[Rfam]
RNA sequence: GGUCACGAGAACCGAUGCGAAGCCCCGGCUGGUCGGACAGCAACCCCCACUCACGGCGGGGUGCUCCGGGAGAUGACCUGGCUGUGCCAACCGGUACGGCAAGCGUGAACG
Numbered sequence: 001g002g003u004c005a006c007g008a009g010a011a012c013c014g015a016u017g018c019g020a021a022g023c024c025c026c027g028g029c030u031g032g033u034c035g036g037a038c039a040g041c042a043a044c045c046c047c048c049a050c051u052c053a054c055g056g057c058g059g060g061g062u063g064c065u066c067c068g069g070g071a072g073a074u075g076a077c078c079u080g081g082c083u084g085u086g087c088c089a090a091c092c093g094g095u096a097c098g099g100c101a102a103g104c105g106u107g108a109a110c111g
Stems, first nucleotide, its partner, number of pairs: 001078004009038001012036005021030002039065003044061003047056002081100008
Rfam assigns this 111-nucleotide RNA from Sanguibacter gelidistatuariae to the family "SAM (S-adenosyl methionine) riboswitch aptamer". It scores 85 bits against the family's covariance model. About the family: SAM-IV is a mRNA element that regulates gene expression via direct sensing of S-adenosylmethionine (SAM or AdoMet). The base pairs follow the family's consensus structure, which is taken from published work.